[Rfam]
RNA sequence: UUACUGAACGUUUUAGCUAUUGAACUGUUUUGUUCCUCUCUGUCAAAGAACAAAUUGUUCUCAGAGAGUGACAGAACAGUUCAAUAGCUAAAGCGUCCACUAAC
Numbered sequence: 001u002u003a004c005u006g007a008a009c010g011u012u013u014u015a016g017c018u019a020u021u022g023a024a025c026u027g028u029u030u031u032g033u034u035c036c037u038c039u040c041u042g043u044c045a046a047a048g049a050a051c052a053a054a055u056u057g058u059u060c061u062c063a064g065a066g067a068g069u070g071a072c073a074g075a076a077c078a079g080u081u082c083a084a085u086a087g088c089u090a091a092a093g094c095g096u097c098c099a100c101u102a103a104c
Base pairs, nucleotide, nucleotide: 001103002102003101005099006098011093012092013091014090015089016088017087018086019085020084021083022082023081024080025079026078027077028076029065030064031063049059050058051057052056